The record is an 81-nucleotide RNA sequence from Paraphotobacterium marinum, which matches "RpsF leader" in Rfam.
Rfam links the family to the GO terms negative regulation of translation and protein binding.
About the family: Conserved and widely distributed to many bacterial species RNA structure. It precedes operon containing rpsF, which encodes ribosomal protein S6. The motif also precedes operon containing rpsR, which encodes ribosomal protein S18. The RNA was shown to interact with S6:S18 protein dimer in vitro. It was shown that RpsF leader regulates gene expression in response to the S6:S18 complex, contributing to the regulation of ribosomal protein levels.
The base pairs follow the family's consensus structure.
RNA sequence: ACCGGUUUAAUUUAGUUCCUUGCUUUCAAGACAUACCGGAGUCAUUUAUGAAAGCUGAAUAAUCCGUAAGGAGCAUAUAUG
Dot-bracket structure: ..............(((((((((((((..(((........)))......))))))............))))))).......